Overview
A member of the RNA family "c-di-AMP riboswitch aptamer (ydaO/yuaA leader)" from Conexibacter arvalis, 158 nucleotides long. Its family is annotated with cyclic-di-AMP binding and regulation of gene expression in the Gene Ontology. A search with the family's covariance model found it, with a score of 57 bits.
[Rfam]
RNA sequence: ACGGUUCGCGUGCCGAAUCGCGACGCCGCAUGGAAGGCGCGCGAGCGGGGGAACCGCCGGACCGCCUUGAGCGGUCCCGGGGCGAAUUGCCGCGAUCCGCGGCAUAGCGCGAUGGCGCGAGCCCGUCAGCUCACCUCGCAGGCGUACAUGACGUUCGA
Number, nucleotide and partner (000 for none) at each position: 001a000002c000003g000004g000005u000006u000007c000008g000009c000010g000011u144012g143013c142014c141015g000016a000017a000018u044019c043020g042021c041022g040023a000024c000025g000026c000027c000028g000029c000030a000031u000032g000033g000034a000035a000036g000037g000038c000039g000040c022041g021042c020043g019044a018045g139046c138047g137048g136049g135050g134051g000052a000053a000054c000055c079056g078057c000058c000059g000060g000061a000062c000063c000064g000065c000066c000067u000068u000069g000070a000071g000072c000073g000074g000075u000076c000077c000078c056079g055080g124081g123082g122083c000084g000085a000086a000087u000088u104089g103090c102091c101092g000093c000094g000095a000096u000097c000098c000099g000100c000101g091102g090103c089104a088105u000106a000107g118108c117109g116110c115111g000112a000113u000114g000115g110116c109117g108118c107119g000120a000121g000122c082123c081124c080125g000126u000127c000128a000129g000130c000131u000132c000133a000134c050135c049136u048137c047138g046139c045140a000141g014142g013143c012144g011145u000146a000147c000148a000149u000150g000151a000152c000153g000154u000155u000156c000157g000158a000